[Rfam]
RNA sequence: GCCCUGUGGUUGCUGGACACUGGUUUGCGGUGCAGUGCUUCAGUUGGUUGGAAUGGGCCAAAAGCGAUACUGUGAUUGAUGCAUGGAGUCUGCUGUGCGAGCAGCUUCCAUAGCCCGGUCACAGUGACAGAC
Numbered sequence: 001g002c003c004c005u006g007u008g009g010u011u012g013c014u015g016g017a018c019a020c021u022g023g024u025u026u027g028c029g030g031u032g033c034a035g036u037g038c039u040u041c042a043g044u045u046g047g048u049u050g051g052a053a054u055g056g057g058c059c060a061a062a063a064g065c066g067a068u069a070c071u072g073u074g075a076u077u078g079a080u081g082c083a084u085g086g087a088g089u090c091u092g093c094u095g096u097g098c099g100a101g102c103a104g105c106u107u108c109c110a111u112a113g114c115c116c117g118g119u120c121a122c123a124g125u126g127a128c129a130g131a132c
Stems, first nucleotide, its partner, number of pairs: 001058004008048001010046001012044006019036004070124001072122006081114002083111004088106001090104005
Shown here is a 132-nucleotide sequence from Centropus unirufus, a member of the family "Small nucleolar RNA SNORA84". Gene Ontology terms of the family: RNA processing and nucleolus. Rfam 15.1 lists 757 matches to the family in 629 species. The literature on the family includes a 2002 paper in Curr Biol by Marker et al., "Experimental RNomics: identification of 140 candidates for small non-messenger RNAs in the plant Arabidopsis thaliana". A search with the family's covariance model found it, with a score of 102 bits. Taxonomically the source falls in Centropus (Eukaryota, Chordata, Sauria, Archosauria). The family's consensus secondary structure was predicted with WAR.